[Rfam]
RNA sequence: GAGUCUCUAUUAAUGUUCUCAGGGCCUUGAAUGAGACCCUCAAAGUCAAAUUUUGGGAACUCUUACACCGAGUAAGGGUU
Numbered sequence: 001g002a003g004u005c006u007c008u009a010u011u012a013a014u015g016u017u018c019u020c021a022g023g024g025c026c027u028u029g030a031a032u033g034a035g036a037c038c039c040u041c042a043a044a045g046u047c048a049a050a051u052u053u054u055g056g057g058a059a060c061u062c063u064u065a066c067a068c069c070g071a072g073u074a075a076g077g078g079u080u
Stems, first nucleotide, its partner, number of pairs: 022039003026035003059079008
A member of the RNA family "SmY spliceosomal RNA" from Caenorhabditis auriculariae, 80 nucleotides long. A reference for the family is Jones et al. (2009), "A survey of nematode SmY RNAs", RNA Biol. The family's RNA type in Rfam is spliceosomal small nuclear RNA. The family has 61 seed sequences and 408 matches in Rfam 15.1.